Source information
The family of this 39-nucleotide RNA from Virgibacillus sp. SK37 is "Ribosomal protein L19 leader". Rfam links the family to the GO term regulation of gene expression. The family's RNA type in Rfam is cis-regulatory leader. It scores 36 bits against the family's covariance model. For this family Rfam cites "Diverse mechanisms for regulating ribosomal protein synthesis in Escherichia coli" (Zengel and Lindahl, Prog Nucleic Acid Res Mol Biol, 1994). This family is a putative r-protein leader autoregulatory structure found in B. subtilis and other low-GC Gram-positive bacteria. It is located in the 5' untranslated regions of mRNAs encoding ribosomal protein L19 (rplS).

[Rfam]
RNA sequence: ACGAUGUUCCGCUGUCACUUAGAGAGAUAUGAGCAUUGG
Numbered sequence: 001a002c003g004a005u006g007u008u009c010c011g012c013u014g015u016c017a018c019u020u021a022g023a024g025a026g027a028u029a030u031g032a033g034c035a036u037u038g039g
Base pairs, nucleotide, nucleotide: 003037004036005035006034007033008032009031013029014028015027016026018024